Rfam assigns this 79-nucleotide RNA to the family "skipping-rope RNA". By type it is a small RNA.

RNA sequence: GUAUUUUGAAGUAGAGAUUGUGCUGCUACGCACCUUAAUGGUUAAAAGAAAUGUGGGAAAGGGCACACCCACCAAAUAC
Dot-bracket structure: ((((((.(..((((.....[[[[[.)))).((((.....))).....)....(((((....]]]]].))))))))))))